[Rfam]
RNA: ZMP/ZTP riboswitch aptamer (pfl RNA motif)
Organism: Actinomadura kijaniata
RNA sequence: CUUGCCGGACGCGACUGGCGCGGUCAAGGUGGAGACACCACCGGGGAGCGAACCAUGUCCGGACACCGCGCGCCUGGGUGGACGGG
Numbered sequence: 001c002u003u004g005c006c007g008g009a010c011g012c013g014a015c016u017g018g019c020g021c022g023g024u025c026a027a028g029g030u031g032g033a034g035a036c037a038c039c040a041c042c043g044g045g046g047a048g049c050g051a052a053c054c055a056u057g058u059c060c061g062g063a064c065a066c067c068g069c070g071c072g073c074c075u076g077g078g079u080g081g082a083c084g085g086g
Base pairs, nucleotide, nucleotide: 003057004056007053010050011049012048015045016044017074018073019072020071021070029041030040031039032038064080065079066078067077